The family of this 78-nucleotide RNA sequence from Clupea harengus is "mir-17 microRNA precursor family". For this family Rfam cites "Identification of novel genes coding for small expressed RNAs" (Lagos-Quintana et al., Science, 2001). It scores 74 bits against the family's covariance model. From the family's description: This family represents the microRNA (miRNA) precursor mir-17, family, which includes mir-20, mir-91, and mir-103. miRNAs are transcribed as ~70nt precursors (modelled here) and subsequently processed by the Dicer enzyme to give a ~22nt product. In this case the mature sequence comes from the 3' arm of the precursor. The extents of the hairpin precursors are not generally known and are estimated based on hairpin prediction. NCBI's taxonomy places the organism under Eukaryota, Metazoa, Bilateria, Gnathostomata, Clupea.

[Rfam]
RNA sequence: UCAGCAGUAUUAAAGUGCUUAUAGUGCAGGUAGUUACUUAUUCAUCUACUGCAGUGUGAGCACUUGAAGUACUUCUAG
Numbered sequence: 001u002c003a004g005c006a007g008u009a010u011u012a013a014a015g016u017g018c019u020u021a022u023a024g025u026g027c028a029g030g031u032a033g034u035u036a037c038u039u040a041u042u043c044a045u046c047u048a049c050u051g052c053a054g055u056g057u058g059a060g061c062a063c064u065u066g067a068a069g070u071a072c073u074u075c076u077a078g
Stems, first nucleotide, its partner, number of pairs: 004075001006073002009070003013065011025053003029050005